[Rfam]
RNA sequence: GGGCGUGUGGUCUAGUGGUAUGAUUCUCGCUUUGGGUGCGAGAGGCCCUGGGUUCAAUUCCCAGCUCGCCCC
Numbered sequence: 001g002g003g004c005g006u007g008u009g010g011u012c013u014a015g016u017g018g019u020a021u022g023a024u025u026c027u028c029g030c031u032u033u034g035g036g037u038g039c040g041a042g043a044g045g046c047c048c049u050g051g052g053u054u055c056a057a058u059u060c061c062c063a064g065c066u067c068g069c070c071c072c
Stems, first nucleotide, its partner, number of pairs: 001071005007065001010024003026042005048064005
RNA: tRNA